[Rfam]
RNA: TD-1 RNA
RNA sequence: UUUUAACUGUGAGUUUGCCUGUCGGCAAACGUCGUGUAUUGUAUGCCGUUUCUCACUUUGUUGCGAAACGGCGGAAAAUAAACAAUCCUCGGAAUUUGAAAAUUCCUGCGGUUGUUUAUUUUAUAA
Numbered sequence: 001u002u003u004u005a006a007c008u009g010u011g012a013g014u015u016u017g018c019c020u021g022u023c024g025g026c027a028a029a030c031g032u033c034g035u036g037u038a039u040u041g042u043a044u045g046c047c048g049u050u051u052c053u054c055a056c057u058u059u060g061u062u063g064c065g066a067a068a069c070g071g072c073g074g075a076a077a078a079u080a081a082a083c084a085a086u087c088c089u090c091g092g093a094a095u096u097u098g099a100a101a102a103u104u105c106c107u108g109c110g111g112u113u114g115u116u117u118a119u120u121u122u123a124u125a126a
Base pairs, nucleotide, nucleotide: 011033012032013030014029015028016027017026018025019024045072046071047070048069049068050067051066052065077120078119079118080117081116082115083114084113085112087111088110091106092105093104094103095102096101